[Rfam]
RNA sequence: GACGCUUCAUGAUGGGAAGGACUGAAAUGUCUCAUGGACGCCUGGUCUUUCCCUGAUGUUCUUGCGGC
Numbered sequence: 001g002a003c004g005c006u007u008c009a010u011g012a013u014g015g016g017a018a019g020g021a022c023u024g025a026a027a028u029g030u031c032u033c034a035u036g037g038a039c040g041c042c043u044g045g046u047c048u049u050u051c052c053c054u055g056a057u058g059u060u061c062u063u064g065c066g067g068c
Stems, first nucleotide, its partner, number of pairs: 001068001003066003014053010029039003